The record is a 528-nucleotide part of an RNA from Thelohanellus kitauei, which matches "Eukaryotic large subunit ribosomal RNA" in Rfam. The source organism's lineage runs through Eukaryota, Myxozoa, Bivalvulida, Platysporina and Thelohanellus.
[Rfam]
RNA sequence: UUUAGUAGCAGCGUAUAGAAGUGAGAACCUUCUAGGCCGAAGUGGAGAAGGGUUCCUCGUGAACAGCAGUUGGACGAGGGUUAGUCGGUCCUAAGCAGAAGCUCACACGCUGAGUAAUAGGAGACGUUUUGUAUGUAAUGUGCUCGCACAUAAUGCUUCGUCUCAGUCUGCGAAAGGGAAUCAGGUUAAUAUUCCUGAACCAGGCGUCGGAUAACCAGUAUUGUCUGGCGAUACCGGGAGGCGUGAGUCGCUUGGAAUUGCCGUGGUAAUGUUGGUAAAGCGGUAACGCAAACGAACUCGGAGACGUUGUUGGUAGUUCUGGAAAGAGUUGUCUUUUCUAGUUAACUGGUUGAACGAGCCUGGAAUGGAGUCAUUCAGAGAUAGGCUUGACAGCCGGGAAGAGCGUCGCAUCUGAGUGGCGUCCGGAAUACUACCAAUGAUCCUUGAAAAUCCGAGGGAGUGAAUGAUUGUCGUGCCUGGCCGUACCGAGAUCCGCAUCAGGUCUCCAAGGUGAAAAGCCUCUGGCUC
Numbered sequence: 001u002u003u004a005g006u007a008g009c010a011g012c013g014u015a016u017a018g019a020a021g022u023g024a025g026a027a028c029c030u031u032c033u034a035g036g037c038c039g040a041a042g043u044g045g046a047g048a049a050g051g052g053u054u055c056c057u058c059g060u061g062a063a064c065a066g067c068a069g070u071u072g073g074a075c076g077a078g079g080g081u082u083a084g085u086c087g088g089u090c091c092u093a094a095g096c097a098g099a100a101g102c103u104c105a106c107a108c109g110c111u112g113a114g115u116a117a118u119a120g121g122a123g124a125c126g127u128u129u130u131g132u133a134u135g136u137a138a139u140g141u142g143c144u145c146g147c148a149c150a151u152a153a154u155g156c157u158u159c160g161u162c163u164c165a166g167u168c169u170g171c172g173a174a175a176g177g178g179a180a181u182c183a184g185g186u187u188a189a190u191a192u193u194c195c196u197g198a199a200c201c202a203g204g205c206g207u208c209g210g211a212u213a214a215c216c217a218g219u220a221u222u223g224u225c226u227g228g229c230g231a232u233a234c235c236g237g238g239a240g241g242c243g244u245g246a247g248u249c250g251c252u253u254g255g256a257a258u259u260g261c262c263g264u265g266g267u268a269a270u271g272u273u274g275g276u277a278a279a280g281c282g283g284u285a286a287c288g289c290a291a292a293c294g295a296a297c298u299c300g301g302a303g304a305c306g307u308u309g310u311u312g313g314u315a316g317u318u319c320u321g322g323a324a325a326g327a328g329u330u331g332u333c334u335u336u337u338c339u340a341g342u343u344a345a346c347u348g349g350u351u352g353a354a355c356g357a358g359c360c361u362g363g364a365a366u367g368g369a370g371u372c373a374u375u376c377a378g379a380g381a382u383a384g385g386c387u388u389g390a391c392a393g394c395c396g397g398g399a400a401g402a403g404c405g406u407c408g409c410a411u412c413u414g415a416g417u418g419g420c421g422u423c424c425g426g427a428a429u430a431c432u433a434c435c436a437a438u439g440a441u442c443c444u445u446g447a448a449a450a451u452c453c454g455a456g457g458g459a460g461u462g463a464a465u466g467a468u469u470g471u472c473g474u475g476c477c478u479g480g481c482c483g484u485a486c487c488g489a490g491a492u493c494c495g496c497a498u499c500a501g502g503u504c505u506c507c508a509a510g511g512u513g514a515a516a517a518g519c520c521u522c523u524g525g526c527u528c
Base pairs, nucleotide, nucleotide: 016034017033018032019031020030021029035527036526037525038524044507045506046505047504050487051486055079056078057077058076059075060074064072065071086483087482088481090177091176095171096170099111101110102109121164122163123162124161125160126159181198182197183196184195185194201479202478203477204476269474270473271472274468280289281288282287297456298455299454300453301452302451306441307440308439309438311436312435313434314433315432316431317430319426320425321424322342325339326338327337346397347396348395349394350393357387358386359385360384361383362382366378368376369375404421405420406419407418408417409416493502494501509521510520511519512518